[Rfam]
RNA sequence: AAUUGAAAACUUCUCCGAGCCUUUUUGCCUAAAGGAUAUAUCUCAUGGCAAGCUGGCCGCAGGGUAUGGCGGGAAACGGCCAUGCCUCCCUUAUGGAAAGGAGACAAUAAGCAGCAGAG
Numbered sequence: 001a002a003u004u005g006a007a008a009a010c011u012u013c014u015c016c017g018a019g020c021c022u023u024u025u026u027g028c029c030u031a032a033a034g035g036a037u038a039u040a041u042c043u044c045a046u047g048g049c050a051a052g053c054u055g056g057c058c059g060c061a062g063g064g065u066a067u068g069g070c071g072g073g074a075a076a077c078g079g080c081c082a083u084g085c086c087u088c089c090c091u092u093a094u095g096g097a098a099a100g101g102a103g104a105c106a107a108u109a110a111g112c113a114g115c116a117g118a119g
Base pairs, nucleotide, nucleotide: 003113012104013103014102015101016100019057020056021055024052025051026050027049028048029047034043035042036041062087063086064085065084066083067082068081069080070079072077088096089095
RNA: Molybdenum/Tungsten riboswitch aptamer (Moco RNA motif)